RNA sequence: AAAAAGGGUGUUUGCCGCUUAGAUGGUACACGCGCCGGUAACGGUGCGUGGGGUGUGGUUAUCAAGACAUACUCAACACGUAAUUUUUGUAAAGGAGAGGCAGUUGGCUACCCACAAGUACCGGCGCCUCC
Numbered sequence: 001a002a003a004a005a006g007g008g009u010g011u012u013u014g015c016c017g018c019u020u021a022g023a024u025g026g027u028a029c030a031c032g033c034g035c036c037g038g039u040a041a042c043g044g045u046g047c048g049u050g051g052g053g054u055g056u057g058g059u060u061a062u063c064a065a066g067a068c069a070u071a072c073u074c075a076a077c078a079c080g081u082a083a084u085u086u087u088u089g090u091a092a093a094g095g096a097g098a099g100g101c102a103g104u105u106g107g108c109u110a111c112c113c114a115c116a117a118g119u120a121c122c123g124g125c126g127c128c129u130c131c
Stems, first nucleotide, its partner, number of pairs: 008079005013028005029050009051074007098129004103125005109120003
Dot-bracket structure: .......((((((((((......)))))(((((((((....)))))))))(((((((..........))))))))))))..................((((.(((((.(((......))))))))))))..